The family of this 79-nucleotide RNA sequence from bacterium HR28 is "Fluoride riboswitch aptamer (crcB RNA motif)".
It scores 47 bits against the family's covariance model.

[Rfam]
RNA sequence: GGUCAAGAGGGCGAUGGAGUCCGCCUGGGCGUGUCUUGCGCCCGAACUGCCGCUGACGGCUGAUGGCUCCUGUCCACAC
Numbered sequence: 001g002g003u004c005a006a007g008a009g010g011g012c013g014a015u016g017g018a019g020u021c022c023g024c025c026u027g028g029g030c031g032u033g034u035c036u037u038g039c040g041c042c043c044g045a046a047c048u049g050c051c052g053c054u055g056a057c058g059g060c061u062g063a064u065g066g067c068u069c070c071u072g073u074c075c076a077c078a079c
Base pairs, nucleotide, nucleotide: 010025011024012023013022016070017069018068019067020066021065049060050059051058052057
Dot-bracket structure: .........[[[[..((((((]]]].......................((((....))))....)))))).........